This 137-nucleotide sequence belongs to the Rfam family "Group II catalytic intron D1-D4-7". The literature on the family includes a 2003 paper in Crit Rev Biochem Mol Biol by Lehmann and Schmidt, "Group II introns: structure and catalytic versatility of large natural ribozymes". Group II introns are found in rRNA, tRNA and mRNA of organelles in fungi, plants and protists, and also in mRNA in bacteria.
RNA sequence: CCAUCUGUAUCACCAGAUGACCCUAAGACUCUGAAUAAAGCAGCGAGUCUGACAAUGUAACAAUAUUCGGCUUUAUGCCGAAUGGGAACUGAAUCGUGAGAGGACGUUCCUCCUGAUAACCACAAUCGGGUAAGUGC
Numbered sequence: 001c002c003a004u005c006u007g008u009a010u011c012a013c014c015a016g017a018u019g020a021c022c023c024u025a026a027g028a029c030u031c032u033g034a035a036u037a038a039a040g041c042a043g044c045g046a047g048u049c050u051g052a053c054a055a056u057g058u059a060a061c062a063a064u065a066u067u068c069g070g071c072u073u074u075a076u077g078c079c080g081a082a083u084g085g086g087a088a089c090u091g092a093a094u095c096g097u098g099a100g101a102g103g104a105c106g107u108u109c110c111u112c113c114u115g116a117u118a119a120c121c122a123c124a125a126u127c128g129g130g131u132a133a134g135u136g137c
Stems, first nucleotide, its partner, number of pairs: 002019006027049005065083006084111004094101002112130006
Rfam's curators put it in the seed alignment. Its family is annotated with Group II intron splicing in the Gene Ontology. Pairs were carried over by alignment from the consensus structure.